[Rfam]
RNA sequence: GCCCAGCUCUAGCAGCACCUCAACACUGGCACCGCGGCUGCUGGCGGCCAGUGUUCCUUGUGCUGCUGCAGUGAGGG
Dot-bracket structure: .((..((..(((((((((...((((((((..................))))))))....))))))))..)))..)).
The record is a 77-nucleotide RNA from Naja naja, which matches "mir-16 microRNA precursor family" in Rfam.
The family is grouped with related families in Rfam's "mir-15 clan".
The organism belongs to Naja, within Eukaryota.
A reference for the family is Calin et al. (2002), "Frequent deletions and down-regulation of micro- RNA genes miR15 and miR16 at 13q14 in chronic lymphocytic leukemia", Proc Natl Acad Sci U S A.
A search with the family's covariance model found it, with a score of 47 bits.